[Rfam]
RNA sequence: UUUUCCAAAACGCUGAAUCUCCCACUGGGAGAGCGGGGGACCCAACGCGAGGGGUGUCGUGAGACGCCUGCGAGCGGUCCGAGCAAUCUUGGGGUGAAGUUCGCGCAGCGGCCGAUGAGCCGCGAAGCGGACAGGGCGGCUCUCUAUGCCCGAACCCGACAGCUAACCUCGCAAGCGUCCAUAGAGAGAGGUC
Numbered sequence: 001u002u003u004u005c006c007a008a009a010a011c012g013c014u015g016a017a018u019c020u021c022c023c024a025c026u027g028g029g030a031g032a033g034c035g036g037g038g039g040a041c042c043c044a045a046c047g048c049g050a051g052g053g054g055u056g057u058c059g060u061g062a063g064a065c066g067c068c069u070g071c072g073a074g075c076g077g078u079c080c081g082a083g084c085a086a087u088c089u090u091g092g093g094g095u096g097a098a099g100u101u102c103g104c105g106c107a108g109c110g111g112c113c114g115a116u117g118a119g120c121c122g123c124g125a126a127g128c129g130g131a132c133a134g135g136g137c138g139g140c141u142c143u144c145u146a147u148g149c150c151c152g153a154a155c156c157c158g159a160c161a162g163c164u165a166a167c168c169u170c171g172c173a174a175g176c177g178u179c180c181a182u183a184g185a186g187a188g189a190g191g192u193c
Stems, first nucleotide, its partner, number of pairs: 011177004018032003033172006043091002092157003100131004134151004
The record is a 193-nucleotide RNA from Cohnella candida, which matches "c-di-AMP riboswitch aptamer (ydaO/yuaA leader)" in Rfam. NCBI's taxonomy places the organism under Bacteria, Bacillati, Bacilli, Paenibacillaceae, Cohnella.